[Rfam]
RNA sequence: GUGAUACUCAAACUGGUGGCUCUUUUGUUUUUUCUUGGAAGAAAAGUGCCGCCAGGUUUUGAGUGUUAC
Number, nucleotide and partner (000 for none) at each position: 001g000002u000003g000004a066005u065006a064007c063008u062009c061010a060011a059012a058013c055014u054015g053016g052017u051018g050019g049020c048021u000022c046023u045024u000025u043026u042027g000028u000029u000030u000031u000032u000033u000034c000035u000036u000037g000038g000039a000040a000041g000042a026043a025044a000045a023046g022047u000048g020049c019050c018051g017052c016053c015054a014055g013056g000057u000058u012059u011060u010061g009062a008063g007064u006065g005066u004067u000068a000069c000
RNA: mir-290 microRNA precursor family
Organism: Peromyscus maniculatus